[Rfam]
RNA sequence: GUAGGCUAUGGAGACAUGAAGCCCAUAACUGUGGGUGGAAAGAUAGUAGGCUCGCUAUGCGCCAUUGCCGGCGUCCUGACCAUUGCGCUCCCGGUACCAGUCAUCGUCUCCAAC
Numbered sequence: 001g002u003a004g005g006c007u008a009u010g011g012a013g014a015c016a017u018g019a020a021g022c023c024c025a026u027a028a029c030u031g032u033g034g035g036u037g038g039a040a041a042g043a044u045a046g047u048a049g050g051c052u053c054g055c056u057a058u059g060c061g062c063c064a065u066u067g068c069c070g071g072c073g074u075c076c077u078g079a080c081c082a083u084u085g086c087g088c089u090c091c092c093g094g095u096a097c098c099a100g101u102c103a104u105c106g107u108c109u110c111c112a113a114c
Base pairs, nucleotide, nucleotide: 001114002113004111005110008107009106010105011104013102014101015100018097020095037077038076040074049063050062051061